[Rfam]
RNA: azaaromatic riboswitch aptamer (yjdF RNA)
RNA sequence: UAGCUGGAAAGAAAAAACACAGUUCGGUUGGUAGUCCGAACAUAGUUAUUUAGCUAUCAGUAACCUGCCUCCUUGGUUGUCCAUCUUUCUUAAUUGAUUU
Numbered sequence: 001u002a003g004c005u006g007g008a009a010a011g012a013a014a015a016a017a018c019a020c021a022g023u024u025c026g027g028u029u030g031g032u033a034g035u036c037c038g039a040a041c042a043u044a045g046u047u048a049u050u051u052a053g054c055u056a057u058c059a060g061u062a063a064c065c066u067g068c069c070u071c072c073u074u075g076g077u078u079g080u081c082c083a084u085c086u087u088u089c090u091u092a093a094u095u096g097a098u099u100u
Base pairs, nucleotide, nucleotide: 006090007089008088009087010086011085022041023040024039025038026037027036042057043056044055045054046053047052067077068076069075